[Rfam]
RNA sequence: GAGAGAAAAUAUGGCAAGAUGUUGGCAUAGCUGUUUGUAUUUACUGCCCUGCUAUGCCUCCAUAUUGCCAUUUUUUUACUUC
Numbered sequence: 001g002a003g004a005g006a007a008a009a010u011a012u013g014g015c016a017a018g019a020u021g022u023u024g025g026c027a028u029a030g031c032u033g034u035u036u037g038u039a040u041u042u043a044c045u046g047c048c049c050u051g052c053u054a055u056g057c058c059u060c061c062a063u064a065u066u067g068c069c070a071u072u073u074u075u076u077u078a079c080u081u082c
Base pairs, nucleotide, nucleotide: 005077006076007075008074009073011071012070013069014068015067016066017065019063020062021061024058025057026056027055028054029053030052031051